Ribosomal protein L10 leader: a 128-nucleotide RNA sequence from Firmicutes bacterium CAG:308.
Gene Ontology term of the family: regulation of gene expression.
The base pairs follow the family's consensus structure, which was predicted with CMfinder.
NCBI's taxonomy places the organism under Bacteria, Bacillati, Bacillota.
It scores 68 bits against the family's covariance model.
RNA sequence: UUGAUUGUUAUCAAUAUUCCAAAGACAGUAACGGCGAAAGCUUAAUCAUGUUACCGAGGGUUGAUGCAGUAAGUAUUGUUUUUGCAUUGUAAAGCCCGUACUUUGGUAUGGGCUUUUCUUUCGAAUAU
Numbered sequence: 001u002u003g004a005u006u007g008u009u010a011u012c013a014a015u016a017u018u019c020c021a022a023a024g025a026c027a028g029u030a031a032c033g034g035c036g037a038a039a040g041c042u043u044a045a046u047c048a049u050g051u052u053a054c055c056g057a058g059g060g061u062u063g064a065u066g067c068a069g070u071a072a073g074u075a076u077u078g079u080u081u082u083u084g085c086a087u088u089g090u091a092a093a094g095c096c097c098g099u100a101c102u103u104u105g106g107u108a109u110g111g112g113c114u115u116u117u118c119u120u121u122c123g124a125a126u127a128u
Stems, first nucleotide, its partner, number of pairs: 028054006034041002094113008